The record is a 186-nucleotide sequence from Marmota marmota, which matches "Small nucleolar RNA SNORA73 family" in Rfam.
For this family Rfam cites "5'ETS rRNA processing facilitated by four small RNAs: U14, E3, U17, and U3" (Enright et al., RNA, 1996).
Gene Ontology terms of the family: nucleolus and RNA processing.
[Rfam]
RNA sequence: CCAGUGUAGACAUCCUGGAAGGUCACUCUCUCCAAGCCCUGUCUAAGUGGUGUAGGGGAGCAUGGGGCUCUGCCACAGGAUGUAUAGUCUCUUUCCACAAUGUCGGAGGUGAAGCUGGGCUUGCAUCUUCCUAUACCAUCUCAGAAUCCUUUGCGACUGAGGAGACAAACCAUGUAGAAAACAUGU
Numbered sequence: 001c002c003a004g005u006g007u008a009g010a011c012a013u014c015c016u017g018g019a020a021g022g023u024c025a026c027u028c029u030c031u032c033c034a035a036g037c038c039c040u041g042u043c044u045a046a047g048u049g050g051u052g053u054a055g056g057g058g059a060g061c062a063u064g065g066g067g068c069u070c071u072g073c074c075a076c077a078g079g080a081u082g083u084a085u086a087g088u089c090u091c092u093u094u095c096c097a098c099a100a101u102g103u104c105g106g107a108g109g110u111g112a113a114g115c116u117g118g119g120c121u122u123g124c125a126u127c128u129u130c131c132u133a134u135a136c137c138a139u140c141u142c143a144g145a146a147u148c149c150u151u152u153g154c155g156a157c158u159g160a161g162g163a164g165a166c167a168a169a170c171c172a173u174g175u176a177g178a179a180a181a182c183a184u185g186u
Base pairs, nucleotide, nucleotide: 001106002105004103005102006101007100008044009043010042011041012040014036016034018029020027021026047098048097049096050095056091057090058089059088060085062083063082064081121177122176123175124174125173126172137164139162140161141160142159